[Rfam]
RNA sequence: GAGCAAACCAAAUUCUCAGGUUGCGCCGCGUAAAAAAUCACUCAAAUGAUUCUGGCCCAACAACCCGUUCCCUGGUGUUGGCGCAGUAUUCGCGCACCCCGGUUUAUCC
Numbered sequence: 001g002a003g004c005a006a007a008c009c010a011a012a013u014u015c016u017c018a019g020g021u022u023g024c025g026c027c028g029c030g031u032a033a034a035a036a037a038u039c040a041c042u043c044a045a046a047u048g049a050u051u052c053u054g055g056c057c058c059a060a061c062a063a064c065c066c067g068u069u070c071c072c073u074g075g076u077g078u079u080g081g082c083g084c085a086g087u088a089u090u091c092g093c094g095c096a097c098c099c100c101g102g103u104u105u106a107u108c109c
Base pairs, nucleotide, nucleotide: 020061021060022059023058025056026055027054074098075097076096081095082094083093084092
Overview: The family of this 109-nucleotide sequence from Klebsiella indica is "ArcZ RNA". Gene Ontology terms of the family: regulation of translation and protein binding. The base pairs follow the family's consensus structure, which was predicted with PFOLD. About the family: This RNA was discovered in E. coli during a large scale screen. SraH expression is highly abundant in stationary phase, but low levels could be detected in exponentially growing cells as well. ArcZ RNA function as an activator of the alternative sigma factor RpoS as a response of stress. ArcZ afects and is also affected by the ArcA-ArcB regulon (aerobic/anaerobic-sensing ArcA-ArcB two-component).